The record is an 84-nucleotide RNA sequence from Megalops atlanticus, which matches "Small nucleolar RNA SNORD103/SNORD85" in Rfam. On this family, see Vitali et al., Nucleic Acids Res 2003: "Identification of 13 novel human modification guide RNAs". The source organism's lineage runs through Eukaryota, Opisthokonta, Elopocephala, Elopiformes and Megalops. Pairs were carried over by alignment from the consensus structure. Rfam 15.1 lists 1,349 matches to the family in 595 species.

RNA sequence: CCUGGUGCUGAUGACACACUUGCCCUCACUGAGAGCUUGUCUCCAUAAUGAGAACUACUUUGUACUCAGUUUUGCUGAGCCAGG
Numbered sequence: 001c002c003u004g005g006u007g008c009u010g011a012u013g014a015c016a017c018a019c020u021u022g023c024c025c026u027c028a029c030u031g032a033g034a035g036c037u038u039g040u041c042u043c044c045a046u047a048a049u050g051a052g053a054a055c056u057a058c059u060u061u062g063u064a065c066u067c068a069g070u071u072u073u074g075c076u077g078a079g080c081c082a083g084g
Base pairs, nucleotide, nucleotide: 001084002083003082004081005080006079
It scores 64 bits against the family's covariance model.